[Rfam]
This 54-nucleotide RNA sequence belongs to the Rfam family "L31-Actinobacteria ribosomal protein leader". Rfam classes the family as a cis-regulatory leader. On this family, see Eckert and Weinberg, BMC Microbiol 2020: "Discovery of 20 novel ribosomal leader candidates in bacteria and archaea".
RNA sequence: GAGGUUCCGGUUCACGGCGCGCGCCCUCCGGCGCGCGGGUCCGACCCGGCGACC
Numbered sequence: 001g002a003g004g005u006u007c008c009g010g011u012u013c014a015c016g017g018c019g020c021g022c023g024c025c026c027u028c029c030g031g032c033g034c035g036c037g038g039g040u041c042c043g044a045c046c047c048g049g050c051g052a053c054c
Stems, first nucleotide, its partner, number of pairs: 003054003007049004015043003018037008